L31-Actinobacteria ribosomal protein leader: a 39-nucleotide sequence from Pseudonocardia sp. MH-G8. Taxonomically the source falls in Pseudonocardia (Bacteria, Actinomycetes, Pseudonocardiales, Pseudonocardiaceae). It is annotated as a cis-regulatory leader.
RNA sequence: CCGGUUCCGGUUCACCCCGUCCCGCGGGGACCCGGCGCC
Number, nucleotide and partner (000 for none) at each position: 001c000002c000003g039004g038005u037006u000007c035008c034009g033010g032011u000012u000013c000014a000015c029016c028017c027018c026019g025020u000021c000022c000023c000024g000025c019026g018027g017028g016029g015030a000031c000032c010033c009034g008035g007036c000037g005038c004039c003